A member of the RNA family "BsrG" from Fervidibacillus halotolerans, 245 nucleotides long.
Pairs were carried over by alignment from the consensus structure, which was predicted with WAR.
NCBI's taxonomy places the organism under Bacteria, Bacillati, Bacillota, Bacillaceae, Fervidibacillus.
It is annotated as a small RNA.
From the family's description: bsrE, bsrG and bsrH pair through intermolecular interactions with antisense sRNAs. They form type I toxin/antitoxin system that includes an mRNA encoding for a short, toxic peptide (bsrE, bsrG and bsrH) and an antitoxin that is comprised of an antisense RNA. bsrG encodes a 39-amino-acid toxin, and the 180 nucleotide antisense sRNA called SR4 acts as the antitoxin (they overlap by 123 nucleotides).
On this family, see Jahn et al., Mol Microbiol 2015: "Against the mainstream: the membrane-associated type I toxin BsrG from Bacillus subtilis interferes with cell envelope biosynthesis without increasing membrane permeability".
RNA sequence: AAUAGCAAGAGUCUCAAGGGUGGCCGGCAUGACCCCUAUUGGAAAGGGGGUGAUGCCUUCGUGACGACAUUUCAAACGCUAAUGCUCAUGAUUGCAUUUGCCAGUUUGAUUUUGUCGAUUCUGUCCUUUACGAAUAAAAAGUAAUCCACCCUUGAGCUUGGCGGCAUGGAGGGUGGAUUACGCUUCCUUGCUGGCUUCCCAAUCGGGACUUGCUAUUGGAUUCGCCGAUGUUUUGUGCAUCGGCG
Numbered sequence: 001a002a003u004a005g006c007a008a009g010a011g012u013c014u015c016a017a018g019g020g021u022g023g024c025c026g027g028c029a030u031g032a033c034c035c036c037u038a039u040u041g042g043a044a045a046g047g048g049g050g051u052g053a054u055g056c057c058u059u060c061g062u063g064a065c066g067a068c069a070u071u072u073c074a075a076a077c078g079c080u081a082a083u084g085c086u087c088a089u090g091a092u093u094g095c096a097u098u099u100g101c102c103a104g105u106u107u108g109a110u111u112u113u114g115u116c117g118a119u120u121c122u123g124u125c126c127u128u129u130a131c132g133a134a135u136a137a138a139a140a141g142u143a144a145u146c147c148a149c150c151c152u153u154g155a156g157c158u159u160g161g162c163g164g165c166a167u168g169g170a171g172g173g174u175g176g177a178u179u180a181c182g183c184u185u186c187c188u189u190g191c192u193g194g195c196u197u198c199c200c201a202a203u204c205g206g207g208a209c210u211u212g213c214u215a216u217u218g219g220a221u222u223c224g225c226c227g228a229u230g231u232u233u234u235g236u237g238c239a240u241c242g243g244c245g
Stems, first nucleotide, its partner, number of pairs: 001217003005213003009209001010196002013156008022146002030052002033049005063125004069119001077090002166185001168183001197208004223245009